[Rfam]
RNA sequence: UGGUGAAGAUGAUGAAAGUAAUAUACGUGAGUGAUGAUCAAGAAAUUUUUACUUUAUCGCUACGUUCGUUCUGAUUCAUAU
Numbered sequence: 001u002g003g004u005g006a007a008g009a010u011g012a013u014g015a016a017a018g019u020a021a022u023a024u025a026c027g028u029g030a031g032u033g034a035u036g037a038u039c040a041a042g043a044a045a046u047u048u049u050u051a052c053u054u055u056a057u058c059g060c061u062a063c064g065u066u067c068g069u070u071c072u073g074a075u076u077c078a079u080a081u
Stems, first nucleotide, its partner, number of pairs: 004078004
This 81-nucleotide sequence from Salix brachista belongs to the Rfam family "Small nucleolar RNA R32/R81/Z41". The literature on the family includes a 2001 paper in J Mol Biol by Barneche et al., "Identification of 66 box C/D snoRNAs in Arabidopsis thaliana: extensive gene duplications generated multiple isoforms predicting new ribosomal RNA 2'-O-methylation sites". It scores 46 bits against the family's covariance model. Pairs were carried over by alignment from the consensus structure, which was predicted with PFOLD.